The record is a 119-nucleotide sequence from Anaeromicrobium sediminis, which matches "Molybdenum/Tungsten riboswitch aptamer (Moco RNA motif)" in Rfam. Taxonomically the source falls in Anaeromicrobium (Bacteria, Bacillati, Clostridia, Thermotaleaceae).
RNA sequence: AAAAUUUUAUUUUUCCGAGUCAAAAAUUCUAAGGUACAGACUAAGAAUUUUUGACCUAUAGGUACAAAGAGAAAUCCUUGUGCCUCCCAUGGUUGGAAAGGAAAUUAACUCUAUAAUGU
Number, nucleotide and partner (000 for none) at each position: 001a000002a000003a000004a112005u000006u000007u000008u000009a000010u000011u000012u104013u103014u102015c101016c100017g000018a000019g055020u054021c053022a052023a051024a050025a049026a048027u047028u046029c045030u000031a000032a000033g042034g041035u040036a000037c000038a000039g000040a035041c034042u033043a000044a000045g029046a028047a027048u026049u025050u024051u023052u022053g021054a020055c019056c000057u000058a000059u000060a085061g084062g083063u082064a081065c080066a079067a078068a000069g076070a075071g000072a000073a000074a000075u070076c069077c000078u067079u066080g065081u064082g063083c062084c061085u060086c096087c095088c000089a000090u000091g000092g000093u000094u000095g087096g086097a000098a000099a000100g016101g015102a014103a013104a012105u000106u000107a000108a000109c000110u000111c000112u004113a000114u000115a000116a000117u000118g000119u000